[Rfam]
RNA sequence: GAUAAAGCAGGUGAGAAUCCUGCUCGCCGAAAACCUAAGGUUUCCUGGGGAAGGUAAAUCCGCCCAGGGUGAGCCGGUGCCUAAGUCGAGGCCGAAAGGCGUAGACGAUGGAUGACAGGUUAAUAUUCCUGUGCUCGGGCAGAUACUGAAGAGGGGACGUCGCGUGAAUGGUGAGAGGCCGGUUAGAAGCGGCCUUUGGGCAACCCAACCCGUCAGGGGAUGUCAUCUGAAACGCGUCCAAGAAAAGCCUCGUAGGGUUCCAAGCUGCCGAACCGUACUAAAACUGACACAGGUAGGUGAGACGAGAAGUCUCAGGCGCU
Numbered sequence: 001g002a003u004a005a006a007g008c009a010g011g012u013g014a015g016a017a018u019c020c021u022g023c024u025c026g027c028c029g030a031a032a033a034c035c036u037a038a039g040g041u042u043u044c045c046u047g048g049g050g051a052a053g054g055u056a057a058a059u060c061c062g063c064c065c066a067g068g069g070u071g072a073g074c075c076g077g078u079g080c081c082u083a084a085g086u087c088g089a090g091g092c093c094g095a096a097a098g099g100c101g102u103a104g105a106c107g108a109u110g111g112a113u114g115a116c117a118g119g120u121u122a123a124u125a126u127u128c129c130u131g132u133g134c135u136c137g138g139g140c141a142g143a144u145a146c147u148g149a150a151g152a153g154g155g156g157a158c159g160u161c162g163c164g165u166g167a168a169u170g171g172u173g174a175g176a177g178g179c180c181g182g183u184u185a186g187a188a189g190c191g192g193c194c195u196u197u198g199g200g201c202a203a204c205c206c207a208a209c210c211c212g213u214c215a216g217g218g219g220a221u222g223u224c225a226u227c228u229g230a231a232a233c234g235c236g237u238c239c240a241a242g243a244a245a246a247g248c249c250u251c252g253u254a255g256g257g258u259u260c261c262a263a264g265c266u267g268c269c270g271a272a273c274c275g276u277a278c279u280a281a282a283a284c285u286g287a288c289a290c291a292g293g294u295a296g297g298u299g300a301g302a303c304g305a306g307a308a309g310u311c312u313c314a315g316g317c318g319c320u
Stems, first nucleotide, its partner, number of pairs: 006024006025318004033298004039279002044068006053061002075275004080111002085106003089102001091100003115132005135271002138269005144263001146256002151251004159238001161236002165231001170227005175196006197207004209218003284293002300312004
Dot-bracket structure: .....((((((.......))))))((((....((((..((...((((((...((.....)).))))))......((((.((...(((.(.(((....))).).)))...))...(((((........)))))..((.(((((.(.((...((((....(.((..(....(((((((((((..........))))))((((...)))).(((....)))....)))))...)...)).).........))))...))......).)))))))))))..))....((......)).)))).((((.....))))..))))..
RNA: Bacterial large subunit ribosomal RNA, nucleotides 1268 to 1587
Organism: planctomycete str. 670